[Rfam]
RNA sequence: AGUUGAAAAGUCAAUACUUUCGAUAUAUAGCAAAUGAUAUGGAUUUGAAGUCUCUACCCGGACGCCGUAAAUGACCGGACUAUCGAAGUUUUACAUAAAAGG
Numbered sequence: 001a002g003u004u005g006a007a008a009a010g011u012c013a014a015u016a017c018u019u020u021c022g023a024u025a026u027a028u029a030g031c032a033a034a035u036g037a038u039a040u041g042g043a044u045u046u047g048a049a050g051u052c053u054c055u056a057c058c059c060g061g062a063c064g065c066c067g068u069a070a071a072u073g074a075c076c077g078g079a080c081u082a083u084c085g086a087a088g089u090u091u092u093a094c095a096u097a098a099a100a101g102g
Base pairs, nucleotide, nucleotide: 018088019087020086021085022084023083024082025081031047032046033045034044035043058078059077060076061075063073064072
RNA: Purine riboswitch aptamer
Organism: Firmicutes bacterium CAG:555